[Rfam]
Shown here is a 180-nucleotide RNA from Cladocopium goreaui, a member of the family "U2 spliceosomal RNA".
U2 is a small nuclear RNA (snRNA) component of the spliceosome (involved in pre-mRNA splicing).
The match comes from Rfam's covariance-model search (132 bits).
RNA sequence: AUACCUUCUCGGCCUUUUGGCUAUGAUCAAGUGUAGUAUGUGUUCUUAUCAGUGUGACAACUGAUAUGCCUCCAACUGGAGACUUGCUUGUCACAUCAAUUUUUGUAUCUUCACGAGCUUGCUCUGGAGCCUCCAUGUGUUGCACUGGCAUGGCACUGAGCCAGUGGCAGCACACCCUAU
Numbered sequence: 001a002u003a004c005c006u007u008c009u010c011g012g013c014c015u016u017u018u019g020g021c022u023a024u025g026a027u028c029a030a031g032u033g034u035a036g037u038a039u040g041u042g043u044u045c046u047u048a049u050c051a052g053u054g055u056g057a058c059a060a061c062u063g064a065u066a067u068g069c070c071u072c073c074a075a076c077u078g079g080a081g082a083c084u085u086g087c088u089u090g091u092c093a094c095a096u097c098a099a100u101u102u103u104u105g106u107a108u109c110u111u112c113a114c115g116a117g118c119u120u121g122c123u124c125u126g127g128a129g130c131c132u133c134c135a136u137g138u139g140u141u142g143c144a145c146u147g148g149c150a151u152g153g154c155a156c157u158g159a160g161c162c163a164g165u166g167g168c169a170g171c172a173c174a175c176c177c178u179a180u
Base pairs, nucleotide, nucleotide: 007026008025011022012021013020014019047066048065049064050063051062052061068083070081071080072079073078115124116123117122137173138172139171140170141169142168144165145164146163147162148161149160

By type it is a spliceosomal small nuclear RNA.